[Rfam]
Rfam assigns this 96-nucleotide RNA sequence from Oryza sativa to the family "Small nucleolar RNA snR60/Z15/Z230/Z193/J17". The sequence is in the family's curated seed alignment.
RNA sequence: UGAGGUCGGAUGAUGAGCAAUUGCAUAGUUCAAAUGAUUACAUUUGUAACUACUAUGAUUACAUCUAAAGUCUUUCGCUCCUAACUGACGACUUUA
Number, nucleotide and partner (000 for none) at each position: 001u000002g000003a000004g093005g092006u091007c090008g089009g000010a000011u000012g000013a000014u000015g000016a000017g000018c000019a000020a000021u000022u000023g000024c000025a000026u000027a000028g000029u000030u000031c000032a000033a000034a000035u000036g000037a000038u000039u000040a000041c000042a000043u000044u000045u000046g000047u000048a000049a000050c000051u000052a000053c000054u000055a000056u000057g000058a000059u000060u000061a000062c000063a000064u000065c000066u000067a000068a000069a000070g000071u000072c000073u000074u000075u000076c000077g000078c000079u000080c000081c000082u000083a000084a000085c000086u000087g000088a000089c008090g007091a006092c005093u004094u000095u000096a000